[Rfam]
RNA sequence: AUUGUUCACUCUCCCUCAAGGGCUUCCGAAUUUGCGUUAAAGGGCUUAAACUGAAGCGCUUGGGGAAGAGUGGAUAA
Numbered sequence: 001a002u003u004g005u006u007c008a009c010u011c012u013c014c015c016u017c018a019a020g021g022g023c024u025u026c027c028g029a030a031u032u033u034g035c036g037u038u039a040a041a042g043g044g045c046u047u048a049a050a051c052u053g054a055a056g057c058g059c060u061u062g063g064g065g066a067a068g069a070g071u072g073g074a075u076a077a
Stems, first nucleotide, its partner, number of pairs: 006073007014065002017062004022057005